Glycine riboswitch aptamer: a 103-nucleotide RNA sequence from Leucobacter sp. wl10. The match comes from Rfam's covariance-model search (58 bits). Rfam describes the family as follows. This family represents the bacterial glycine riboswitch.
RNA sequence: CAAGCCGUGGCGGGAGAGCCCGGGAUCCGCGAUAUCGCGACCCGGCGCCGUAGGAGCAAACCCUCCCCGGGAAUCUCUCAGGCCCCCGUACCGCCGCGGCGAG
Numbered sequence: 001c002a003a004g005c006c007g008u009g010g011c012g013g014g015a016g017a018g019c020c021c022g023g024g025a026u027c028c029g030c031g032a033u034a035u036c037g038c039g040a041c042c043c044g045g046c047g048c049c050g051u052a053g054g055a056g057c058a059a060a061c062c063c064u065c066c067c068c069g070g071g072a073a074u075c076u077c078u079c080a081g082g083c084c085c086c087c088g089u090a091c092c093g094c095c096g097c098g099g100c101g102a103g
Base pairs, nucleotide, nucleotide: 006098007097008096009095010094011093012092013091020045021044022043023042047083048082049081050079054077055076056075061069